[Rfam]
The record is a 101-nucleotide sequence from Pantoea agglomerans, which matches "ArcZ RNA" in Rfam. Lineage of the source: Bacteria > Gammaproteobacteria > Enterobacterales > Erwiniaceae > Pantoea. The family's consensus secondary structure was predicted with PFOLD. By type it is a small RNA. The match comes from Rfam's covariance-model search (68 bits).
RNA sequence: GUGUUAACCAAUACCCUGCGGCUGCAUUAAUUAUUCAAAUCAUAGCGGCCGCAAUGAUUUCCCUGGUGUUGGCGCAGUAUUUCGCGCACCCCGGCCUCGGC
Numbered sequence: 001g002u003g004u005u006a007a008c009c010a011a012u013a014c015c016c017u018g019c020g021g022c023u024g025c026a027u028u029a030a031u032u033a034u035u036c037a038a039a040u041c042a043u044a045g046c047g048g049c050c051g052c053a054a055u056g057a058u059u060u061c062c063c064u065g066g067u068g069u070u071g072g073c074g075c076a077g078u079a080u081u082u083c084g085c086g087c088a089c090c091c092c093g094g095c096c097u098c099g100g101c
Base pairs, nucleotide, nucleotide: 018052019051020050021049022048023047024046025045065090066089067088072087073086074085075084